[Rfam]
RNA sequence: AUCCGGCUUAGUUAGGAGGCACAUAGCGAAACCCUCAGGAUCCGAAUUUCACUAUUCGGGUCUUGAAUCGAGGCAUUUUGAGUGGACCUUUGUUCUUCGCUGUCAAUUGUCCUCCAAGCAGCCUUGGAUAUCC
Numbered sequence: 001a002u003c004c005g006g007c008u009u010a011g012u013u014a015g016g017a018g019g020c021a022c023a024u025a026g027c028g029a030a031a032c033c034c035u036c037a038g039g040a041u042c043c044g045a046a047u048u049u050c051a052c053u054a055u056u057c058g059g060g061u062c063u064u065g066a067a068u069c070g071a072g073g074c075a076u077u078u079u080g081a082g083u084g085g086a087c088c089u090u091u092g093u094u095c096u097u098c099g100c101u102g103u104c105a106a107u108u109g110u111c112c113u114c115c116a117a118g119c120a121g122c123c124u125u126g127g128a129u130a131u132c133c
Base pairs, nucleotide, nucleotide: 005020007018008017009016039062040061041060042059043058047054068127069126070125071124072123073122074121077118078117079116080115082114084112085111086110087109090106
RNA: Small nucleolar RNA U19
Organism: Ipomoea nil